[Rfam]
RNA: Small nucleolar RNA SNORA15
RNA sequence: GCAUGGCUGAAUACUGUGUUCUUUUUAUCAGUAAUUUGCACAGCCAGACACCAUGCAAAAGUAUCAUCUUCCCUUUAAAAUGUUUAUGAUGUAUGCUAACUUUUUCUCAUGGCAUAUCAUUAUUAAAGGUGAAUACAAAU
Numbered sequence: 001g002c003a004u005g006g007c008u009g010a011a012u013a014c015u016g017u018g019u020u021c022u023u024u025u026u027a028u029c030a031g032u033a034a035u036u037u038g039c040a041c042a043g044c045c046a047g048a049c050a051c052c053a054u055g056c057a058a059a060a061g062u063a064u065c066a067u068c069u070u071c072c073c074u075u076u077a078a079a080a081u082g083u084u085u086a087u088g089a090u091g092u093a094u095g096c097u098a099a100c101u102u103u104u105u106c107u108c109a110u111g112g113c114a115u116a117u118c119a120u121u122a123u124u125a126a127a128g129g130u131g132a133a134u135a136c137a138a139a140u
Base pairs, nucleotide, nucleotide: 001056002055003054004053005052006051014043015042016041017040018039019038069133070132071131072129073128074127075126076125077124078123087122088121089120090119091117092116093115094114095113096112097111098110